[Rfam]
RNA sequence: CUACACAGCACUGCACCCAGAGUCUGCCCCCAUAUAGCACACCUGGCGGUGUUCAGCCAAAAUCAAAGUGGUUU
Numbered sequence: 001c002u003a004c005a006c007a008g009c010a011c012u013g014c015a016c017c018c019a020g021a022g023u024c025u026g027c028c029c030c031c032a033u034a035u036a037g038c039a040c041a042c043c044u045g046g047c048g049g050u051g052u053u054c055a056g057c058c059a060a061a062a063u064c065a066a067a068g069u070g071g072u073u074u
Stems, first nucleotide, its partner, number of pairs: 005052003009048001017046004022035002025032002
Shown here is a 74-nucleotide RNA sequence from Dasypus novemcinctus, a member of the family "U1A polyadenylation inhibition element (PIE)". Gene Ontology term of the family: regulation of mRNA polyadenylation. On this family, see Clerte and Hall, Biochemistry 2004: "Global and Local Dynamics of the U1A Polyadenylation Inhibition Element (PIE) RNA and PIE RNA-U1A Complexes". About the family: This family represents the U1A polyadenylation inhibition element (PIE). PIE is a regulatory RNA which is responsible for the regulation of the length of the polyA tail of the U1A pre-mRNA. The PIE is located in the U1A mRNA 3' UTR. PIE adopts a U-shaped structure, with binding sites for a single U1A protein at each bend and when complexed with the two proteins it blocks activity of poly(A) polymerase (PAP), and inhibits its activity.